A member of the RNA family "Rhizobiales sRNA Atu_At1" from Roseivivax halodurans, 107 nucleotides long.
NCBI's taxonomy places the organism under Bacteria, Pseudomonadati, Rhodobacterales, Roseivivax, Roseivivax halodurans.
On this family, see Wilms et al., RNA Biol 2012: "Deep sequencing uncovers numerous small RNAs on all four replicons of the plant pathogen Agrobacterium tumefaciens".
Rfam classes the family as a small RNA.
The base pairs follow the family's consensus structure, which was predicted with CMfinder.
[Rfam]
RNA sequence: GAUGGCUGCGUGUCAACUGGGCGCGGCGGUACGGUCAACACGGGCAUUUUCCCAGUUUCUGUCCGUGGCCAACGAAACGGCAGGCGAGGAUCUGUCCCGUCCGCAGC
Numbered sequence: 001g002a003u004g005g006c007u008g009c010g011u012g013u014c015a016a017c018u019g020g021g022c023g024c025g026g027c028g029g030u031a032c033g034g035u036c037a038a039c040a041c042g043g044g045c046a047u048u049u050u051c052c053c054a055g056u057u058u059c060u061g062u063c064c065g066u067g068g069c070c071a072a073c074g075a076a077a078c079g080g081c082a083g084g085c086g087a088g089g090a091u092c093u094g095u096c097c098c099g100u101c102c103g104c105a106g107c
Stems, first nucleotide, its partner, number of pairs: 006106004011023004025101003028097002033092004039067007068081003